[Rfam]
RNA sequence: ACUUUCUGGAGUACAGUCUGUGUUAACAGGCUGAUGGCUGGUGACUUUUUGGUCACCAGCCU
Numbered sequence: 001a002c003u004u005u006c007u008g009g010a011g012u013a014c015a016g017u018c019u020g021u022g023u024u025a026a027c028a029g030g031c032u033g034a035u036g037g038c039u040g041g042u043g044a045c046u047u048u049u050u051g052g053u054c055a056c057c058a059g060c061c062u
Stems, first nucleotide, its partner, number of pairs: 014033005022027001036061010
Shown here is a 62-nucleotide RNA sequence from Edwardsiella hoshinae, a member of the family "Pseudomonas sRNA P26".
The family's consensus secondary structure was predicted with RNAalifold.
It is annotated as a non-coding RNA gene.
For this family Rfam cites "Identification of 17 Pseudomonas aeruginosa sRNAs and prediction of sRNA-encoding genes in 10 diverse pathogens using the bioinformatic tool sRNAPredict2" (Livny et al., Nucleic Acids Res, 2006).
The match comes from Rfam's covariance-model search (62 bits).